About this RNA
Bacterial RNase P class A: a 417-nucleotide RNA sequence from Bordetella sp. 02P26C-1.
[Rfam]
RNA sequence: AAGACAGGUCGGGCAAUCGCGGUGUACGAAAGUGCGUCGAGGAAGGUCCGGACUCCAUAGGGCAGGAUAACGGCUAACGGCCGUCCGGCUGUUUACGGGCUUUGUCCGCAAGCAGUCGAGGAAUAGGGCCACAGAGACGAGUCUGCGGCGCGGGCGUGCUCUCGGGCGCGCACCGGUACGGCUAUCUCCGUACUGCGUCAGACGCUUUGCGUCUGGCGGUGUGGCAGGGUGAAACGCGGUAACCUCUAUCCGGAGCAACACCAAAUAGGCAUGCGCACGGUCUUCGGACCUGAGGGGCGGCUCGUCCCAGUAUGCGGGUAGGUGGCUACAGCGGCUCAGCAAUGAUCCGCGCAGAGGAAUGAUUGCCCGUCGGGGUGACCCGGCGUACAGAAUCCGGCCUAUAGACCUGUCUUGCAG
Numbered sequence: 001a002a003g004a005c006a007g008g009u010c011g012g013g014c015a016a017u018c019g020c021g022g023u024g025u026a027c028g029a030a031a032g033u034g035c036g037u038c039g040a041g042g043a044a045g046g047u048c049c050g051g052a053c054u055c056c057a058u059a060g061g062g063c064a065g066g067a068u069a070a071c072g073g074c075u076a077a078c079g080g081c082c083g084u085c086c087g088g089c090u091g092u093u094u095a096c097g098g099g100c101u102u103u104g105u106c107c108g109c110a111a112g113c114a115g116u117c118g119a120g121g122a123a124u125a126g127g128g129c130c131a132c133a134g135a136g137a138c139g140a141g142u143c144u145g146c147g148g149c150g151c152g153g154g155c156g157u158g159c160u161c162u163c164g165g166g167c168g169c170g171c172a173c174c175g176g177u178a179c180g181g182c183u184a185u186c187u188c189c190g191u192a193c194u195g196c197g198u199c200a201g202a203c204g205c206u207u208u209g210c211g212u213c214u215g216g217c218g219g220u221g222u223g224g225c226a227g228g229g230u231g232a233a234a235c236g237c238g239g240u241a242a243c244c245u246c247u248a249u250c251c252g253g254a255g256c257a258a259c260a261c262c263a264a265a266u267a268g269g270c271a272u273g274c275g276c277a278c279g280g281u282c283u284u285c286g287g288a289c290c291u292g293a294g295g296g297g298c299g300g301c302u303c304g305u306c307c308c309a310g311u312a313u314g315c316g317g318g319u320a321g322g323u324g325g326c327u328a329c330a331g332c333g334g335c336u337c338a339g340c341a342a343u344g345a346u347c348c349g350c351g352c353a354g355a356g357g358a359a360u361g362a363u364u365g366c367c368c369g370u371c372g373g374g375g376u377g378a379c380c381c382g383g384c385g386u387a388c389a390g391a392a393u394c395c396g397g398c399c400u401a402u403a404g405a406c407c408u409g410u411c412u413u414g415c416a417g
Base pairs, nucleotide, nucleotide: 001413002412003411004410005409006408007407008406009405010404011402012367013366014365015364016363017362018361020039021038022037023036024035025034026033027032044400045399046398048397049396050395051394052393053255054254055253056252060303061302062301063300065251066250067249068248069247070084071083072082073081074080085120086118087117088116089115090114091113092112093111094110121246122245126244127243128240129239130238143228144227145225146224148222149221150220151219153217259324260323261322262321269315270314271313272312273311274310294308295307296306297305298304331350332349333348334347336345337344338343
Description:
It scores 207 bits against the family's covariance model.